This 279-nucleotide RNA sequence from Nannospalax galili belongs to the Rfam family "Mason-Pfizer monkey virus packaging signal". The family's consensus secondary structure was predicted with PFOLD. Rfam classes the family as a cis-regulatory element. The literature on the family includes a 2004 paper in Virus Res by Mustafa et al., "Mutational analysis of the predicted secondary RNA structure of the Mason-Pfizer monkey virus packaging signal".

[Rfam]
RNA sequence: UGGCGCCCAAUGUGGGGCUGGAUACUGGGGGCACAUCGUGAGGGAGAUGAUGGAGAAAAAGGAGUGCACUCGCUAAAUCUCAAGGAAUUCGGAGACACGCCGUGGAAGCCUGCCACGACCCAACCGAAGGUAAGUUGUGCUGUCCGAUCAUGGGACAAGAAUUGAGCCAGCAUCAGAUUUAUGUGAAGCAAUUGAGAGAGGCUCUAAAGACAUGAAGAGUAAAGGUUAGGACUGCGGAUUUAUUUCAUUUCUUUGAUUUUGUAAAGAACAUUUGUCCCU
Numbered sequence: 001u002g003g004c005g006c007c008c009a010a011u012g013u014g015g016g017g018c019u020g021g022a023u024a025c026u027g028g029g030g031g032c033a034c035a036u037c038g039u040g041a042g043g044g045a046g047a048u049g050a051u052g053g054a055g056a057a058a059a060a061g062g063a064g065u066g067c068a069c070u071c072g073c074u075a076a077a078u079c080u081c082a083a084g085g086a087a088u089u090c091g092g093a094g095a096c097a098c099g100c101c102g103u104g105g106a107a108g109c110c111u112g113c114c115a116c117g118a119c120c121c122a123a124c125c126g127a128a129g130g131u132a133a134g135u136u137g138u139g140c141u142g143u144c145c146g147a148u149c150a151u152g153g154g155a156c157a158a159g160a161a162u163u164g165a166g167c168c169a170g171c172a173u174c175a176g177a178u179u180u181a182u183g184u185g186a187a188g189c190a191a192u193u194g195a196g197a198g199a200g201g202c203u204c205u206a207a208a209g210a211c212a213u214g215a216a217g218a219g220u221a222a223a224g225g226u227u228a229g230g231a232c233u234g235c236g237g238a239u240u241u242a243u244u245u246c247a248u249u250u251c252u253u254u255g256a257u258u259u260u261g262u263a264a265a266g267a268a269c270a271u272u273u274g275u276c277c278c279u
Base pairs, nucleotide, nucleotide: 006030007029008028012025013024014023036050037049038048039047088129089128091125092124101117102116103115104114105113135158136157137156138155143154144153145152146151163206164205166202167201168200213255214254215253216252217251218250219249223241224240225239226238227237264279266277268275269274